Overview:
This 246-nucleotide sequence from Capsella rubella belongs to the Rfam family "TeloSII non coding RNA 30". The family has 2 seed sequences and 20 matches in Rfam 15.1. Rfam classes the family as a small RNA. About the family: Located downstream of the TeloSII elements. These elements have been shown to coordinate the expression of protein-coding gene related to ribosome biogenesis throughout the cell cycle in Arabidopsis. A reference for the family is Qu et al. (2015), "Promoter-based identification of novel non-coding RNAs reveals the presence of dicistronic snoRNA-miRNA genes in Arabidopsis thaliana", BMC Genomics.
RNA sequence: UUCACCCUACUAACCCUGAAUUCCCUUCUUCUACCUCCAUGAUUCUCAAAUCAUCUUCUUCUUUUUCUUCGUCUACCUAUUACACACAUGAAGAGAAAUCUCCAAUAGCCACAGGACUCGACAGUUUCAAGAUCUCACCUCUUCACGAAGAUCCUCAAGAUUCAAGAGUUAUGAUCGAUUUGUUCUAAACUUAACCCAUCUCUCUAUCUCUCUUAUGCUUUGUGUAUCAUUUUUUUGUUUACCCUU
Numbered sequence: 001u002u003c004a005c006c007c008u009a010c011u012a013a014c015c016c017u018g019a020a021u022u023c024c025c026u027u028c029u030u031c032u033a034c035c036u037c038c039a040u041g042a043u044u045c046u047c048a049a050a051u052c053a054u055c056u057u058c059u060u061c062u063u064u065u066u067c068u069u070c071g072u073c074u075a076c077c078u079a080u081u082a083c084a085c086a087c088a089u090g091a092a093g094a095g096a097a098a099u100c101u102c103c104a105a106u107a108g109c110c111a112c113a114g115g116a117c118u119c120g121a122c123a124g125u126u127u128c129a130a131g132a133u134c135u136c137a138c139c140u141c142u143u144c145a146c147g148a149a150g151a152u153c154c155u156c157a158a159g160a161u162u163c164a165a166g167a168g169u170u171a172u173g174a175u176c177g178a179u180u181u182g183u184u185c186u187a188a189a190c191u192u193a194a195c196c197c198a199u200c201u202c203u204c205u206a207u208c209u210c211u212c213u214u215a216u217g218c219u220u221u222g223u224g225u226a227u228c229a230u231u232u233u234u235u236u237g238u239u240u241a242c243c244c245u246u
Base pairs, nucleotide, nucleotide: 078241079240086234088232095136096135098133099132100131101130114127115126116125117124144224145223146222147221148220149219150218158209159208160207161206166192167191168190169189170188173185174184176182